[Rfam]
Record summary
This 223-nucleotide RNA from Streptomyces toyocaensis belongs to the Rfam family "Streptomyces sRNA 4677". Pairs were carried over by alignment from the consensus structure. Rfam's curators write: Located in the intergenic region between anti-sigma factor SCO4677 gene and a putative regulatory protein gene SCO4676. scr4677 expression requires the SCO4677 activity and scr4677 sRNA itself seem to affect the levels of the SCO4676-associated transcripts. The source organism's lineage runs through Bacteria, Bacillati, Actinomycetota, Streptomycetaceae and Streptomyces.

RNA sequence: GGGUCCGGUGGGCCACUGACCUCCCCAGAGAACCGGGAGAAAGAACUACCCGCCCACCCACCCUCCCGGCCGGAAGGCCCGCGUCACUCGUGCGGGUGACCGGCUUGCAGGCGCGGGACGCGGACGGCUACGUUCGCGGCAACCACCACAAACGAAUACGGCCCCCGGCCGGGAUUGCCGUCCCGAUCGAGGGCCUGACCGAUCAGGAAGAACACCCUUCCCA
Numbered sequence: 001g002g003g004u005c006c007g008g009u010g011g012g013c014c015a016c017u018g019a020c021c022u023c024c025c026c027a028g029a030g031a032a033c034c035g036g037g038a039g040a041a042a043g044a045a046c047u048a049c050c051c052g053c054c055c056a057c058c059c060a061c062c063c064u065c066c067c068g069g070c071c072g073g074a075a076g077g078c079c080c081g082c083g084u085c086a087c088u089c090g091u092g093c094g095g096g097u098g099a100c101c102g103g104c105u106u107g108c109a110g111g112c113g114c115g116g117g118a119c120g121c122g123g124a125c126g127g128c129u130a131c132g133u134u135c136g137c138g139g140c141a142a143c144c145a146c147c148a149c150a151a152a153c154g155a156a157u158a159c160g161g162c163c164c165c166c167g168g169c170c171g172g173g174a175u176u177g178c179c180g181u182c183c184c185g186a187u188c189g190a191g192g193g194c195c196u197g198a199c200c201g202a203u204c205a206g207g208a209a210g211a212a213c214a215c216c217c218u219u220c221c222c223a
Base pairs, nucleotide, nucleotide: 011071012070013069014068084099085098086097087096088095089094112138113137114136115135116134160195161194162193163192164191166189167188171184172183173182174181206221207220208219209218210217